[Rfam]
RNA sequence: AACAAUUUGUCCCGCAUCCCACGGCGUUUUAAAAAGUCCCAAAAAUCAGGACUUCUUUAAAACGCCGUGGGACGUGGGACAAAUUGUUAA
Number, nucleotide and partner (000 for none) at each position: 001a088002a087003c086004a085005a084006u083007u082008u081009g080010u079011c078012c077013c076014g075015c074016a000017u072018c071019c070020c069021a068022c067023g066024g065025c064026g063027u062028u061029u060030u059031a058032a057033a056034a000035a054036g000037u000038c000039c000040c000041a000042a000043a000044a000045a000046u000047c000048a000049g000050g000051a000052c000053u000054u035055c000056u033057u032058u031059a030060a029061a028062a027063c026064g025065c024066c023067g022068u021069g020070g019071g018072a017073c000074g015075u014076g013077g012078g011079a010080c009081a008082a007083a006084u005085u004086g003087u002088u001089a000090a000
The family of this 90-nucleotide RNA sequence from Pipistrellus kuhlii is "mir-9261 microRNA precursor family". The family's consensus secondary structure was predicted with RNAalifold. The family has 3 seed sequences and 196 matches in Rfam 15.1.